[Rfam]
RNA sequence: AGCUUUGCACGGUGGGAGGAUGGUAGCCAGUGAGGUUUAUCCCGGGUGCGAUUAUUGCUAAUUGAUAACGUUUCCCAAUACUCCACCAUGACAACUUGAAACAUAGUCGGUAUUGGCGAUUUUUGACAGUCUCUAGUGA
Number, nucleotide and partner (000 for none) at each position: 001a000002g000003c000004u000005u000006u000007g000008c000009a000010c000011g000012g000013u000014g000015g000016g000017a000018g000019g000020a052021u051022g000023g049024u048025a000026g047027c046028c045029a000030g000031u000032g000033a000034g042035g041036u000037u000038u000039a000040u000041c035042c034043c000044g000045g028046g027047u026048g024049c023050g000051a021052u020053u000054a000055u000056u000057g000058c000059u000060a000061a000062u000063u000064g000065a000066u000067a000068a000069c000070g000071u000072u000073u000074c000075c000076c000077a000078a000079u000080a000081c000082u000083c000084c000085a000086c116087c115088a113089u112090g111091a000092c109093a000094a107095c106096u105097u000098g000099a000100a000101a000102c000103a000104u000105a096106g095107u094108c000109g092110g000111u090112a089113u088114u000115g087116g086117c000118g000119a000120u000121u000122u000123u000124u000125g000126a000127c000128a000129g000130u000131c000132u139133c138134u000135a000136g000137u000138g133139a132
RNA: U4 spliceosomal RNA
Organism: Piliocolobus tephrosceles